[Rfam]
RNA sequence: GGGGACGUUACGGAUUCGACGGGGGUAGUUCGGUCUUCUGUGGCGUGUCGAGGGGUCGGCCUCGUUAAAACGCAUCAGCCAUAACUGGCAAAACUAACACACAACUCGCAGCAGCUUAAUAGCUACUACGGAUCCUAGCAGCCGUCGCCUGGUCGGCUGAUUUCUAGGGUCUCACUUUAAACAGGCUACGCUUGGACCCUUCCGUCUGGAGGGAAAGAGAAGAGAUGGAAUCAGACUGGUCGGACGGACGCCUGUCAAUUGGCAGCCUGACGACGAGAUCCCAAUAAAUUGACUACACACGUAGAAGCUUAAGUAUACGAUGCCUUCGGACGUGGGUUCGACUCCCACCGUCUCCAUAC
Numbered sequence: 001g002g003g004g005a006c007g008u009u010a011c012g013g014a015u016u017c018g019a020c021g022g023g024g025g026u027a028g029u030u031c032g033g034u035c036u037u038c039u040g041u042g043g044c045g046u047g048u049c050g051a052g053g054g055g056u057c058g059g060c061c062u063c064g065u066u067a068a069a070a071c072g073c074a075u076c077a078g079c080c081a082u083a084a085c086u087g088g089c090a091a092a093a094c095u096a097a098c099a100c101a102c103a104a105c106u107c108g109c110a111g112c113a114g115c116u117u118a119a120u121a122g123c124u125a126c127u128a129c130g131g132a133u134c135c136u137a138g139c140a141g142c143c144g145u146c147g148c149c150u151g152g153u154c155g156g157c158u159g160a161u162u163u164c165u166a167g168g169g170u171c172u173c174a175c176u177u178u179a180a181a182c183a184g185g186c187u188a189c190g191c192u193u194g195g196a197c198c199c200u201u202c203c204g205u206c207u208g209g210a211g212g213g214a215a216a217g218a219g220a221a222g223a224g225a226u227g228g229a230a231u232c233a234g235a236c237u238g239g240u241c242g243g244a245c246g247g248a249c250g251c252c253u254g255u256c257a258a259u260u261g262g263c264a265g266c267c268u269g270a271c272g273a274c275g276a277g278a279u280c281c282c283a284a285u286a287a288a289u290u291g292a293c294u295a296c297a298c299a300c301g302u303a304g305a306a307g308c309u310u311a312a313g314u315a316u317a318c319g320a321u322g323c324c325u326u327c328g329g330a331c332g333u334g335g336g337u338u339c340g341a342c343u344c345c346c347a348c349c350g351u352c353u354c355c356a357u358a359c
Stems, first nucleotide, its partner, number of pairs: 001355007020328008029319001032316001035313003040308002044301005049064005054076003108129001110127002113124004131171006137161001139159006147186005153180001191219003197213003204236006239274004245269003250263003254293004260287001332348005
RNA: transfer-messenger RNA
Organism: Exiguobacterium artemiae